A member of the RNA family "Bacterial large subunit ribosomal RNA" from Psychroflexus salarius, 600 nucleotides of a longer RNA. A search with the family's covariance model found it, with a score of 2730 bits.
[Rfam]
RNA sequence: UAGUAUCGGUGAAGAUGCCGAUUACCCGCUGUGGGACGAAAAGACCCCGUGAACCUUUACUAUAGCUUAGUAUUGACUUUGGAUAAGUGAUGUGUAGGAUAGGUGGGAGACAUUGAAGCGGUAUCGCUAGGUAUCGUGGAGUCAUUGUUGAAAUACCACCCUUUACUUGUUUGAAGCCUAAUCCCUUAAUAGGGAGACAUUACUUGGUGGGUAGUUUGACUGGGGUGGUCGCCUCCAAAAUAGUAACGGAGGCUUCUAAAGGUUCCCUCAGCACGCUUGGUAACCGUGCGUAGAGUGCAAUGGCAUAAGGGAGCUUGACUGAGAGACCUACAAGUCGAUCAGGUACGAAAGUAGAGCAUAGUGAUCCGGUGGUUCCGCAUGGAAGGGCCAUCGCUCAAAGGAUAAAAGGUACUCCGGGGAUAACAGGCUGAUCUCCCCCAAGAGCUCACAUCGACGGGGGGGUUUGGCACCUCGAUGUCGGCUCGUCACAUCCUGGGGCUGGAGAAGGUCCCAAGGGUUGGGCUGUUCGCCCAUUAAAGUGGCACGCGAGCUGGGUUCAGAACGUCGUGAGACAGUUCGGUCUCUAUCUACAGUGGGCGU
Numbered sequence: 001u002a003g004u005a006u007c008g009g010u011g012a013a014g015a016u017g018c019c020g021a022u023u024a025c026c027c028g029c030u031g032u033g034g035g036a037c038g039a040a041a042a043g044a045c046c047c048c049g050u051g052a053a054c055c056u057u058u059a060c061u062a063u064a065g066c067u068u069a070g071u072a073u074u075g076a077c078u079u080u081g082g083a084u085a086a087g088u089g090a091u092g093u094g095u096a097g098g099a100u101a102g103g104u105g106g107g108a109g110a111c112a113u114u115g116a117a118g119c120g121g122u123a124u125c126g127c128u129a130g131g132u133a134u135c136g137u138g139g140a141g142u143c144a145u146u147g148u149u150g151a152a153a154u155a156c157c158a159c160c161c162u163u164u165a166c167u168u169g170u171u172u173g174a175a176g177c178c179u180a181a182u183c184c185c186u187u188a189a190u191a192g193g194g195a196g197a198c199a200u201u202a203c204u205u206g207g208u209g210g211g212u213a214g215u216u217u218g219a220c221u222g223g224g225g226u227g228g229u230c231g232c233c234u235c236c237a238a239a240a241u242a243g244u245a246a247c248g249g250a251g252g253c254u255u256c257u258a259a260a261g262g263u264u265c266c267c268u269c270a271g272c273a274c275g276c277u278u279g280g281u282a283a284c285c286g287u288g289c290g291u292a293g294a295g296u297g298c299a300a301u302g303g304c305a306u307a308a309g310g311g312a313g314c315u316u317g318a319c320u321g322a323g324a325g326a327c328c329u330a331c332a333a334g335u336c337g338a339u340c341a342g343g344u345a346c347g348a349a350a351g352u353a354g355a356g357c358a359u360a361g362u363g364a365u366c367c368g369g370u371g372g373u374u375c376c377g378c379a380u381g382g383a384a385g386g387g388c389c390a391u392c393g394c395u396c397a398a399a400g401g402a403u404a405a406a407a408g409g410u411a412c413u414c415c416g417g418g419g420a421u422a423a424c425a426g427g428c429u430g431a432u433c434u435c436c437c438c439c440a441a442g443a444g445c446u447c448a449c450a451u452c453g454a455c456g457g458g459g460g461g462g463u464u465u466g467g468c469a470c471c472u473c474g475a476u477g478u479c480g481g482c483u484c485g486u487c488a489c490a491u492c493c494u495g496g497g498g499c500u501g502g503a504g505a506a507g508g509u510c511c512c513a514a515g516g517g518u519u520g521g522g523c524u525g526u527u528c529g530c531c532c533a534u535u536a537a538a539g540u541g542g543c544a545c546g547c548g549a550g551c552u553g554g555g556u557u558c559a560g561a562a563c564g565u566c567g568u569g570a571g572a573c574a575g576u577u578c579g580g581u582c583u584c585u586a587u588c589u590a591c592a593g594u595g596g597g598c599g600u
Stems, first nucleotide, its partner, number of pairs: 005022005025597008034589003038584002046418004051414002053410005059215004066207002069204004075178001077176014092161001102160005109143003118137008182195003186192001218230004231253006254399001256356002262314006268294002271289005295304002319342004325336003344353003367393007375386002427468003431465001432462007442452002479554001480552004484546001485543005492517002495512006519533005560578004564573003